RNA sequence: CACGACAAACGGCAAACCUGCUUCGAAAGACAGGGACGCAAAGCUAUAGGGCCUUACCCCCAGGGGAUGGCAGCCAGCCGCCGAA
Number, nucleotide and partner (000 for none) at each position: 001c000002a000003c000004g000005a000006c000007a000008a000009a000010c000011g000012g039013c038014a000015a000016a000017c034018c033019u032020g031021c000022u000023u030024c029025g000026a000027a000028a000029g024030a023031c020032a019033g018034g017035g000036a000037c000038g013039c012040a000041a000042a000043g078044c077045u076046a000047u000048a000049g075050g074051g071052c070053c069054u000055u000056a000057c000058c065059c064060c000061c000062a000063g000064g059065g058066g000067a000068u000069g053070g052071c051072a000073g000074c050075c049076a045077g044078c043079c000080g000081c000082c000083g000084a000085a000